Nucleotides: 130
Base pairs, nucleotide, nucleotide: 001121002120003119004118014116015115016114017113018112019111024053054101055100056099062075063074064073065072078095079094080093081092
Number, partner (000 for none) and nucleotide at each position: 001121c002120g003119c004118c005000g006000g007000g008000g009000c010000a011000g012000g013000a014116g015115u016114g017113g018112g019111g020000g021000a022000c023000c024053c025000a026000c027000c028000u029000c030000u031000c032000c033000a034000c035000g036000c037000g038000g039000u040000c041000c042000a043000c044000g045000g046000a047000c048000c049000g050000c051000u052000c053024g054101g055100g056099g057000c058000g059000a060000a061000g062075c063074c064073a065072c066000c067000c068000a069000c070000g071000g072065g073064u074063g075062g076000c077000c078095g079094g080093g081092c082000a083000c084000c085000u086000u087000c088000c089000a090000c091000a092081g093080c094079c095078c096000g097000a098000g099056c100055c101054c102000g103000a104000c105000a106000g107000c108000u109000c110000a111019c112018c113017u114016c115015a116014c117000a118004g119003g120002c121001g122000u123000g124000g125000g126000a127000a128000g129000g130000a
About this RNA:
Shown here is a 130-nucleotide sequence from Nocardioides sp. dk884, a member of the family "c-di-AMP riboswitch aptamer (ydaO/yuaA leader)". A reference for the family is Barrick et al. (2004), "New RNA motifs suggest an expanded scope for riboswitches in bacterial genetic control", Proc Natl Acad Sci U S A. Rfam's curators write: This family represents a conserved RNA structure found upstream of the ydaO and yuaA genes in Bacillus subtilis and related genes in other bacteria. The base pairs follow the family's consensus structure. Taxonomically the source falls in Nocardioides (Bacteria, Actinomycetes, Propionibacteriales, Nocardioidaceae).